[Rfam]
Background: Rfam assigns this 52-nucleotide RNA sequence from Bos grunniens to the family "mir-1302 microRNA precursor family". Rfam 15.1 lists 16,160 matches to the family in 135 species. A search with the family's covariance model found it, with a score of 66 bits. Rfam links the family to the GO terms miRNA-mediated post-transcriptional gene silencing and RISC complex. Taxonomically the source falls in Bos (Eukaryota, Amniota, Laurasiatheria, Ruminantia). Pairs were carried over by alignment from the consensus structure, which was predicted with WAR.
RNA sequence: UUUCUAGUAUAAGUGUGUCCCAUGCAGCAUUUGGGACAUACUUAUUUUAAAA
Numbered sequence: 001u002u003u004c005u006a007g008u009a010u011a012a013g014u015g016u017g018u019c020c021c022a023u024g025c026a027g028c029a030u031u032u033g034g035g036a037c038a039u040a041c042u043u044a045u046u047u048u049a050a051a052a
Stems, first nucleotide, its partner, number of pairs: 006048002009045004014040003018036004022031001